[Rfam]
RNA sequence: UAAUUCGACUAGGGGAGCAUGAAAAUGCUGAGAGAGAUAUGAUCGACCCUUUGAACCUGAUCUAGGUAACACUAGCGUAGGGAAGUGGAACUGGAACUGG
Numbered sequence: 001u002a003a004u005u006c007g008a009c010u011a012g013g014g015g016a017g018c019a020u021g022a023a024a025a026u027g028c029u030g031a032g033a034g035a036g037a038u039a040u041g042a043u044c045g046a047c048c049c050u051u052u053g054a055a056c057c058u059g060a061u062c063u064a065g066g067u068a069a070c071a072c073u074a075g076c077g078u079a080g081g082g083a084a085g086u087g088g089a090a091c092u093g094g095a096a097c098u099g100g
Base pairs, nucleotide, nucleotide: 006088008086009085010084011050012049013048014047017028018027019026020025036044037043038042056081057080058079059078062075063074064073065072

The record is a 100-nucleotide sequence from Schinkia azotoformans, which matches "TPP riboswitch aptamer (THI element)" in Rfam. Taxonomically the source falls in Schinkia azotoformans (Bacteria, Bacillati, Caryophanales, Bacillaceae). Pairs were carried over by alignment from the consensus structure, which is taken from published work.